Rfam assigns this 368-nucleotide RNA from Lwoffella lincolnii to the family "Bacterial RNase P class A".
On this family, see Frank and Pace, Annu Rev Biochem 1998: "Ribonuclease P: unity and diversity in a tRNA processing ribozyme".

RNA sequence: UUGGCAGACCAGACGAACGCUGUGCCGUACGAUGACAUCAAGCGGUAGGGAGGAAAGUCCGGGCUACAUAGGGCAGAGUGCCAGCUAACGGCUGGGCGGUGUAAGCCGACGACUAGUGCAACAGAGAGCAGACCGCCCCGCCAUGUCUGUGACGUAGCGGGGUAAGGGUGAAAGGGUGGGGUAAGAGCCCACCGCAUGACUGGUAACAGCUCAUGGCAAGGUAAACUCCACUCGUAGCAAGACCAAAUAGGUGUCCGUAUGGCGUUGCCCGCGUUGGACACGGGUAGGUUGCUUGAGCGUAUUGGUAACGAUACGCCUAGAUGAAUGUUCGUCCAUGACAGAACCCGGCUUAUCGGUUUGCCAACCAA
Number, nucleotide and partner (000 for none) at each position: 001u364002u363003g362004g361005c360006a359007g358008a357009c356010c355011a353012g333013a332014c331015g330016a329017a328018c327019g000020c050021u049022g000023u047024g046025c045026c044027g043028u042029a000030c000031g000032a000033u000034g000035a000036c000037a000038u000039c000040a000041a000042g028043c027044g026045g025046u024047a023048g000049g021050g020051a000052g000053g000054a000055a351056a350057g349058u000059c348060c347061g346062g345063g344064c237065u236066a235067c234068a000069u000070a000071g270072g269073g268074c267075a000076g233077a232078g231079u230080g229081c095082c094083a093084g092085c091086u000087a000088a000089c000090g000091g085092c084093u083094g082095g081096g110097c108098g107099g106100u105101g000102u000103a000104a000105g100106c099107c098108g097109a000110c096111g228112a227113c000114u000115a000116g226117u225118g222119c221120a000121a000122c000123a000124g000125a000126g000127a000128g000129c000130a000131g000132a000133c167134c166135g163136c162137c161138c160139c159140g158141c157142c000143a155144u154145g153146u152147c000148u000149g000150u000151g000152a146153c145154g144155u143156a000157g141158c140159g139160g138161g137162g136163u135164a000165a000166g134167g133168g000169u000170g000171a000172a000173a000174g000175g193176g192177u191178g190179g189180g188181g000182u000183a000184a000185g000186a000187g000188c180189c179190c178191a177192c176193c175194g217195c215196a214197u213198g212199a211200c209201u208202g207203g000204u000205a000206a000207c202208a201209g200210c000211u199212c198213a197214u196215g195216g000217c194218a000219a000220g000221g119222u118223a000224a000225a117226c116227u112228c111229c080230a079231c078232u077233c076234g067235u066236a065237g064238c000239a000240a000241g290242a289243c288244c287245a000246a000247a000248u000249a000250g000251g281252u280253g279254u278255c277256c276257g000258u000259a000260u000261g275262g274263c273264g272265u271266u000267g074268c073269c072270c071271g265272c264273g263274u262275u261276g256277g255278a254279c253280a252281c251282g000283g000284g000285u000286a000287g244288g243289u242290u241291g000292c000293u000294u000295g000296a000297g316298c315299g314300u313301a312302u311303u310304g309305g000306u000307a000308a000309c304310g303311a302312u301313a300314c299315g298316c297317c000318u000319a000320g000321a000322u000323g000324a000325a000326u000327g018328u017329u016330c015331g014332u013333c012334c000335a000336u000337g000338a000339c000340a000341g000342a000343a000344c063345c062346c061347g060348g059349c057350u056351u055352a000353u011354c000355g010356g009357u008358u007359u006360g005361c004362c003363a002364a001365c000366c000367a000368a000
Notes
A search with the family's covariance model found it, with a score of 335 bits.